[Rfam]
RNA sequence: AGAGGUUACACGUUCGAGGCGAUAGUAGAAGCACUCAUGGUGUGGCCUGUCAGAUUCCAAAUGAAAUCUGUGAAUUAUGCU
Numbered sequence: 001a002g003a004g005g006u007u008a009c010a011c012g013u014u015c016g017a018g019g020c021g022a023u024a025g026u027a028g029a030a031g032c033a034c035u036c037a038u039g040g041u042g043u044g045g046c047c048u049g050u051c052a053g054a055u056u057c058c059a060a061a062u063g064a065a066a067u068c069u070g071u072g073a074a075u076u077a078u079g080c081u
Base pairs, nucleotide, nucleotide: 018047019046020045024081025080026079027078029076030075031043032042033041051070052069053068054067055066056065